RNA sequence: GAACGUCGGCACUGACAACCUCCUCGCGGUGGCGUUCGGGCAACGGAUAAAUAUCCGGCGAAUAGUCAGUA
Dot-bracket structure: (((((((..........(((.......))))))))))......(((((....)))))..............
Numbered sequence: 001g002a003a004c005g006u007c008g009g010c011a012c013u014g015a016c017a018a019c020c021u022c023c024u025c026g027c028g029g030u031g032g033c034g035u036u037c038g039g040g041c042a043a044c045g046g047a048u049a050a051a052u053a054u055c056c057g058g059c060g061a062a063u064a065g066u067c068a069g070u071a
Stems, first nucleotide, its partner, number of pairs: 001037007018030003044057005